[Rfam]
This 88-nucleotide RNA sequence from Mycobacterium heidelbergense belongs to the Rfam family "Group II catalytic intron D1-D4-1". Lineage of the source: Bacteria > Actinomycetota > Mycobacteriales > Mycobacterium > Mycobacterium simiae complex.
RNA sequence: CGACACGGUUCGCGAGGAAGGUGGGGACGGGGCAGAAGUCAGCAGAGGUCGUAGUACCGGGGAGAACGCUCGAAACGCCGGGGAGGGC
Numbered sequence: 001c002g003a004c005a006c007g008g009u010u011c012g013c014g015a016g017g018a019a020g021g022u023g024g025g026g027a028c029g030g031g032g033c034a035g036a037a038g039u040c041a042g043c044a045g046a047g048g049u050c051g052u053a054g055u056a057c058c059g060g061g062g063a064g065a066a067c068g069c070u071c072g073a074a075a076c077g078c079c080g081g082g083g084a085g086g087g088c
Stems, first nucleotide, its partner, number of pairs: 001026001004023003009018003039046002048088003057081004062076001

Group II introns are found in rRNA, tRNA and mRNA of organelles in fungi, plants and protists, and also in mRNA in bacteria.